[Rfam]
RNA sequence: CAGGCAGCUCCCGAAAAGCCUUAAAAGAGUAGGGG
Numbered sequence: 001c002a003g004g005c006a007g008c009u010c011c012c013g014a015a016a017a018g019c020c021u022u023a024a025a026a027g028a029g030u031a032g033g034g035g
Base pairs, nucleotide, nucleotide: 002021003020004019005018010034011033012032
DUF805b RNA: a 35-nucleotide RNA sequence from Fulvivirga imtechensis. Taxonomically the source falls in Fulvivirga imtechensis (Bacteria, Cytophagales, Fulvivirgaceae, Fulvivirga). The family's RNA type in Rfam is cis-regulatory element.